Overview: This 159-nucleotide RNA sequence from Formivibrio citricus belongs to the Rfam family "Manganese Mn2+ riboswitch aptamer (yybP-ykoY)". This RNA was originally discovered in E. coli during a large scale screen and was named SraF. The family was later found to exist upstream of related families of protein genes in many bacteria, including the the yybP and ykoK genes in B. subtilis. The specific functions of these proteins are unknown, but this structured RNA element may be involved in their genetic regulation as a riboswitch. A reference for the family is Price et al. (2015), "Mn(2+)-sensing mechanisms of yybP-ykoY orphan riboswitches", Mol Cell.
[Rfam]
RNA sequence: GGGGAGUAGUCGCCGCACCAGAUGCGGGGAUGCGUCAACAGACUUGGGCUUGCCCAUGGCGCAUCCGGCCGGUAAUGACCGGUUUGACAAGACCCGAGGUUUGUUUGCUGCGCUCAUGGGGUGGGCCGCGGCGAACGGCCUCGUGUCGCCUGCCUGCCC
Numbered sequence: 001g002g003g004g005a006g007u008a009g010u011c012g013c014c015g016c017a018c019c020a021g022a023u024g025c026g027g028g029g030a031u032g033c034g035u036c037a038a039c040a041g042a043c044u045u046g047g048g049c050u051u052g053c054c055c056a057u058g059g060c061g062c063a064u065c066c067g068g069c070c071g072g073u074a075a076u077g078a079c080c081g082g083u084u085u086g087a088c089a090a091g092a093c094c095c096g097a098g099g100u101u102u103g104u105u106u107g108c109u110g111c112g113c114u115c116a117u118g119g120g121g122u123g124g125g126c127c128g129c130g131g132c133g134a135a136c137g138g139c140c141u142c143g144u145g146u147c148g149c150c151u152g153c154c155u156g157c158c159c
Base pairs, nucleotide, nucleotide: 014026015025016024028066029065030064031063032062033061034060035059036058037057045056046055047054048053067158068157069156071154072153073152074151